[Rfam]
RNA sequence: CAAAGUUGAAUAUCGAUACCGUAGACCGUAGGUGCCGCGAGGCUUAAUUUCCUACCGAGGUGUGUGUAUAGAAUCUUAGCCGCUUCCCGCGAAGCGGAUGGAUAGAUCGAACACGUCAUGCCUCCGUAGAAUCUGCGGAGGCAUUUCUUAUGCCCCG
Numbered sequence: 001c002a003a004a005g006u007u008g009a010a011u012a013u014c015g016a017u018a019c020c021g022u023a024g025a026c027c028g029u030a031g032g033u034g035c036c037g038c039g040a041g042g043c044u045u046a047a048u049u050u051c052c053u054a055c056c057g058a059g060g061u062g063u064g065u066g067u068a069u070a071g072a073a074u075c076u077u078a079g080c081c082g083c084u085u086c087c088c089g090c091g092a093a094g095c096g097g098a099u100g101g102a103u104a105g106a107u108c109g110a111a112c113a114c115g116u117c118a119u120g121c122c123u124c125c126g127u128a129g130a131a132u133c134u135g136c137g138g139a140g141g142c143a144u145u146u147c148u149u150a151u152g153c154c155c156c157g
Stems, first nucleotide, its partner, number of pairs: 028055005034043003120142010
Record summary:
This 157-nucleotide RNA sequence from Cohnella thailandensis belongs to the Rfam family "Ribosomal protein L10 leader". By type it is a cis-regulatory leader. About the family: This family is a putative r-protein leader autoregulatory structure found in B. subtilis and other low-GC Gram-positive bacteria. It is located in the 5' untranslated regions of mRNAs encoding ribosomal proteins L10 and L12 (rplJ-rplL). A Rho-independent transcription terminator structure that is probably involved in regulation is included at the 3' end. Taxonomically the source falls in Cohnella (Bacteria, Bacillota, Bacilli, Caryophanales).